[Rfam]
RNA sequence: AUAAAUAGCUUCUAGGGUUCCGAUUUAAAAACAGCAUUUUUAAAUGACUGGUCCGAGAGAAGCAAGCUACCUGGAAAGCUUUUAGCUAGUAAUAGACUUUUAAUAACUUGGUAGUUACACGGCGGGGAAAAAGCCCGGGAGGA
Numbered sequence: 001a002u003a004a005a006u007a008g009c010u011u012c013u014a015g016g017g018u019u020c021c022g023a024u025u026u027a028a029a030a031a032c033a034g035c036a037u038u039u040u041u042a043a044a045u046g047a048c049u050g051g052u053c054c055g056a057g058a059g060a061a062g063c064a065a066g067c068u069a070c071c072u073g074g075a076a077a078g079c080u081u082u083u084a085g086c087u088a089g090u091a092a093u094a095g096a097c098u099u100u101u102a103a104u105a106a107c108u109u110g111g112u113a114g115u116u117a118c119a120c121g122g123c124g125g126g127g128a129a130a131a132a133g134c135c136c137g138g139g140a141g142g143a
Base pairs, nucleotide, nucleotide: 008063009062010061011060012059015054016053020051021050022048023045024044025043026042027041028040029039030038031037065116066115067114068113069112070111071110118138120141124136125135126134
Shown here is a 143-nucleotide RNA sequence from Pleurocapsales cyanobacterium LEGE 06147, a member of the family "Guanidine-I riboswitch aptamer". A reference for the family is Barrick et al. (2004), "New RNA motifs suggest an expanded scope for riboswitches in bacterial genetic control", Proc Natl Acad Sci U S A. Lineage of the source: Bacteria > Bacillati > Cyanobacteriota > Cyanophyceae > Pleurocapsales.